Record summary
Shown here is a 160-nucleotide RNA from Nothocercus julius, a member of the family "Small nucleolar RNA SNORD97". Rfam 15.1 lists 639 matches to the family in 614 species. Rfam links the family to the GO terms RNA processing and nucleolus. Taxonomically the source falls in Nothocercus (Eukaryota, Opisthokonta, Dipnotetrapodomorpha, Archosauria). Pairs were carried over by alignment from the consensus structure, which was predicted with WAR.
[Rfam]
RNA sequence: UUGCCCAAUGAUUAUAGCAAGACGCGUUAUUAUGAGGACUAAUGCUGGAACUCUCUCCUCCUCCUACUUCUCCUUCUUUGUCCCUUCUUCUUUCACCUUCCCUGUUCCCUUACCUUAGUGUAUCCAGCGUCCUGUGAGCGAGACUGAGAUAUGAGGGCAA
Numbered sequence: 001u002u003g004c005c006c007a008a009u010g011a012u013u014a015u016a017g018c019a020a021g022a023c024g025c026g027u028u029a030u031u032a033u034g035a036g037g038a039c040u041a042a043u044g045c046u047g048g049a050a051c052u053c054u055c056u057c058c059u060c061c062u063c064c065u066a067c068u069u070c071u072c073c074u075u076c077u078u079u080g081u082c083c084c085u086u087c088u089u090c091u092u093u094c095a096c097c098u099u100c101c102c103u104g105u106u107c108c109c110u111u112a113c114c115u116u117a118g119u120g121u122a123u124c125c126a127g128c129g130u131c132c133u134g135u136g137a138g139c140g141a142g143a144c145u146g147a148g149a150u151a152u153g154a155g156g157g158c159a160a
Base pairs, nucleotide, nucleotide: 001160002159003158004157005156006155035054036053037052040049
Dot-bracket structure: ((((((............................(((..(........)..)))....................................................................................................))))))